Description
FMN riboswitch aptamer (RFN element): a 157-nucleotide RNA sequence from Ottowia oryzae. A search with the family's covariance model found it, with a score of 107 bits. Its family is annotated with FMN binding in the Gene Ontology.
[Rfam]
RNA sequence: AUGCGUUCUCAGGGCGGGGUGGAAAUCCCCACCGGCGGUAUCUGCCUGACAAGGCAGCAGCCCGCGAGCGCCUGGAUGGCCAGCAGGCCGCCCAGGGUCAGCAGAUCUGGUGCGAUGCCAGAGCCGACGGUCACAGUCCGGAUGAAAGAGAGCGUGC
Numbered sequence: 001a002u003g004c005g006u007u008c009u010c011a012g013g014g015c016g017g018g019g020u021g022g023a024a025a026u027c028c029c030c031a032c033c034g035g036c037g038g039u040a041u042c043u044g045c046c047u048g049a050c051a052a053g054g055c056a057g058c059a060g061c062c063c064g065c066g067a068g069c070g071c072c073u074g075g076a077u078g079g080c081c082a083g084c085a086g087g088c089c090g091c092c093c094a095g096g097g098u099c100a101g102c103a104g105a106u107c108u109g110g111u112g113c114g115a116u117g118c119c120a121g122a123g124c125c126g127a128c129g130g131u132c133a134c135a136g137u138c139c140g141g142a143u144g145a146a147a148g149a150g151a152g153c154g155u156g157c
Stems, first nucleotide, its partner, number of pairs: 003155008017029003031137002033126002035065004060124002068102002106122005128140003